[Rfam]
RNA sequence: UGCCUAACCCUUGUGAGCUAAAACUCCGAGGUAUGGCAGAAAAACCCCGCUACAGGAUAAAGAGCUCAUCGUCAGCUCACCUGUAGCGGGUCAUAUCCGAAAGGGUAUGGGUGACCGAAAGGUUGCC
Dot-bracket structure: ((((....(((((.(((......))))))))...)))).......(((((((((((.....(((((.......))))).))))))))))).(((((((....)))))))((((((......))))))
Numbered sequence: 001u002g003c004c005u006a007a008c009c010c011u012u013g014u015g016a017g018c019u020a021a022a023a024c025u026c027c028g029a030g031g032u033a034u035g036g037c038a039g040a041a042a043a044a045c046c047c048c049g050c051u052a053c054a055g056g057a058u059a060a061a062g063a064g065c066u067c068a069u070c071g072u073c074a075g076c077u078c079a080c081c082u083g084u085a086g087c088g089g090g091u092c093a094u095a096u097c098c099g100a101a102a103g104g105g106u107a108u109g110g111g112u113g114a115c116c117g118a119a120a121g122g123u124u125g126c127c
Stems, first nucleotide, its partner, number of pairs: 001038004009031005015026003046090011062078005092109007110127006